RNA sequence: AAAGUGUCGUACGCUACGGCGAUGGACUGGUUCAUCGCUGUGUGCUUCGCCUUU
Numbered sequence: 001a002a003a004g005u006g007u008c009g010u011a012c013g014c015u016a017c018g019g020c021g022a023u024g025g026a027c028u029g030g031u032u033c034a035u036c037g038c039u040g041u042g043u044g045c046u047u048c049g050c051c052u053u054u
Stems, first nucleotide, its partner, number of pairs: 001054003006051001008049001011046001013045002015042006022035005
A member of the RNA family "Editing element of GABA-3 exon 9" from Scleropages formosus, 54 nucleotides long. The source organism's lineage runs through Eukaryota, Metazoa, Bilateria, Teleostei and Scleropages. For this family Rfam cites "Editing modifies the GABA(A) receptor subunit alpha3" (Ohlson et al., RNA, 2007). Rfam classes the family as a cis-regulatory element.